[Rfam]
The family of this 324-nucleotide RNA from Dispira parvispora is "Group I catalytic intron". The match comes from Rfam's covariance-model search (64 bits). Rfam links the family to the GO term Group I intron splicing. The organism belongs to Dispira, within Eukaryota. About the family: Group I catalytic introns are large self-splicing ribozymes. They catalyse their own excision from mRNA, tRNA and rRNA precursors in a wide range of organisms. The core secondary structure consists of 9 paired regions (P1-P9).

RNA sequence: AUACCUUAUUUAAAGUGAUUUCAGCACGUUACACUAUAAAAAAAAUAAAUAAGGAAAGGAUAUUUAAGCUUAACUGAGGUGUAUGGCAGAGUACGUCAAAUUGUUCGGGGAAGCCCUUAGAGCUUUAAACUACCAACCAAUUUUCGAAAGAAAGUUGAGGGCCUCGCCUUGAGGAUAUAGGUAAAAAUGUUUAAAGAUUGGGUAAUCCGCAGCCAAGCUCCUAAAAUUUAUAAAUAAUAUUUAUAAAUCACGGGGAAGGUUCAACGACUGUAAGGCGUGCCACGCAAGUGGAAUAUACAGUCUAGCCCCACGGGAAACUGUGUC
Numbered sequence: 001a002u003a004c005c006u007u008a009u010u011u012a013a014a015g016u017g018a019u020u021u022c023a024g025c026a027c028g029u030u031a032c033a034c035u036a037u038a039a040a041a042a043a044a045a046u047a048a049a050u051a052a053g054g055a056a057a058g059g060a061u062a063u064u065u066a067a068g069c070u071u072a073a074c075u076g077a078g079g080u081g082u083a084u085g086g087c088a089g090a091g092u093a094c095g096u097c098a099a100a101u102u103g104u105u106c107g108g109g110g111a112a113g114c115c116c117u118u119a120g121a122g123c124u125u126u127a128a129a130c131u132a133c134c135a136a137c138c139a140a141u142u143u144u145c146g147a148a149a150g151a152a153a154g155u156u157g158a159g160g161g162c163c164u165c166g167c168c169u170u171g172a173g174g175a176u177a178u179a180g181g182u183a184a185a186a187a188u189g190u191u192u193a194a195a196g197a198u199u200g201g202g203u204a205a206u207c208c209g210c211a212g213c214c215a216a217g218c219u220c221c222u223a224a225a226a227u228u229u230a231u232a233a234a235u236a237a238u239a240u241u242u243a244u245a246a247a248u249c250a251c252g253g254g255g256a257a258g259g260u261u262c263a264a265c266g267a268c269u270g271u272a273a274g275g276c277g278u279g280c281c282a283c284g285c286a287a288g289u290g291g292a293a294u295a296u297a298c299a300g301u302c303u304a305g306c307c308c309c310a311c312g313g314g315a316a317a318c319u320g321u322g323u324c
Base pairs, nucleotide, nucleotide: 006036009033011031012030013029091280092279093278094277095276097274102211103210106209107208108207109206114202115201116200212260213259218255219254220253221252226248227247228246229245230244231243232242233241264303266302267301268300269299270298282289283288309322310321311320312319313318